RNA sequence: UUUAAAACUUAGCUCCCAAGCUACUUCACCUAAAGCUGCGGCUACGGGGAAUUAGCCGACUUGGCUGUUAUGCCGACACGGUAAAUCCGGAAACGGGUUUAUCUCCCUUAUAUUGGAAAGGAGUCAAUGGCACUGAGAA
Numbered sequence: 001u002u003u004a005a006a007a008c009u010u011a012g013c014u015c016c017c018a019a020g021c022u023a024c025u026u027c028a029c030c031u032a033a034a035g036c037u038g039c040g041g042c043u044a045c046g047g048g049g050a051a052u053u054a055g056c057c058g059a060c061u062u063g064g065c066u067g068u069u070a071u072g073c074c075g076a077c078a079c080g081g082u083a084a085a086u087c088c089g090g091a092a093a094c095g096g097g098u099u100u101a102u103c104u105c106c107c108u109u110a111u112a113u114u115g116g117a118a119a120g121g122a123g124u125c126a127a128u129g130g131c132a133c134u135g136a137g138a139a
Base pairs, nucleotide, nucleotide: 012124013123014122015121017120020056021055022054023053025051026050027049029047030046034043035042036041061076062075063074064073065072080103081102082101083100084099085098086097087096088095089094105116106115
Annotation:
Shown here is a 139-nucleotide RNA from Desulfosporosinus sp. Tol-M, a member of the family "Molybdenum/Tungsten riboswitch aptamer (Moco RNA motif)". The family's consensus secondary structure is taken from published work. The source organism's lineage runs through Bacteria, Bacillota, Clostridia, Eubacteriales and Desulfosporosinus.